[Rfam]
Nucleotides: 116
Base pairs, nucleotide, nucleotide: 003078004077005076009068010067011066013064014063015062016061017060028054029053030052031051033049034048035047096116100113101112102111103110
Number, partner (000 for none) and nucleotide at each position: 001000a002000u003078a004077c005076u006000c007000u008000g009068a010067u011066u012000c013064u014063u015062c016061u017060u018000c019000a020000u021000a022000u023000u024000g025000u026000a027000u028054g029053a030052a031051u032000a033049u034048u035047u036000g037000g038000c039000c040000u041000u042000u043000u044000a045000c046000u047035a048034a049033a050000g051031a052030u053029u054028u055000c056000c057000a058000a059000a060017g061016a062015g063014g064013g065000a066011a067010a068009u069000a070000a071000c072000u073000u074000u075000c076005a077004g078003u079000c080000u081000u082000a083000c084000u085000u086000u087000a088000a089000u090000u091000g092000u093000u094000u095000g096116a097000g098000g099000c100113c101112u102111u103110g104000c105000u106000u107000u108000g109000a110103c111102a112101g113100g114000a115000a116096u

Overview:
The family of this 116-nucleotide RNA from Ictidomys tridecemlineatus is "U5 spliceosomal RNA". Rfam 15.1 lists 28,527 matches to the family in 2,489 species. NCBI's taxonomy places the organism under Eukaryota, Craniata, Vertebrata, Tetrapoda, Ictidomys. The match comes from Rfam's covariance-model search (57 bits).